[Rfam]
RNA sequence: ACCCACCCACCCGACGUACGGCAGGAGCGGGGGACCCACAGGUACGACCGCCUGUUCCGGUUCCCGGAACGGCUUUGGGGUGAAGUCGCGCCCAGGCGCGGCCGGGCAUCUCCCGCCCGAACCCGACAGCUCACCUCGCAGGCGCCGGAGAGGAAUU
Numbered sequence: 001a002c003c004c005a006c007c008c009a010c011c012c013g014a015c016g017u018a019c020g021g022c023a024g025g026a027g028c029g030g031g032g033g034a035c036c037c038a039c040a041g042g043u044a045c046g047a048c049c050g051c052c053u054g055u056u057c058c059g060g061u062u063c064c065c066g067g068a069a070c071g072g073c074u075u076u077g078g079g080g081u082g083a084a085g086u087c088g089c090g091c092c093c094a095g096g097c098g099c100g101g102c103c104g105g106g107c108a109u110c111u112c113c114c115g116c117c118c119g120a121a122c123c124c125g126a127c128a129g130c131u132c133a134c135c136u137c138g139c140a141g142g143c144g145c146c147g148g149a150g151a152g153g154a155a156u157u
Stems, first nucleotide, its partner, number of pairs: 003025002027139006037077002078124003086101004104118004
Rfam assigns this 157-nucleotide sequence from Streptomyces sp. Ru71 to the family "c-di-AMP riboswitch aptamer (ydaO/yuaA leader)".
Rfam links the family to the GO terms regulation of gene expression and cyclic-di-AMP binding.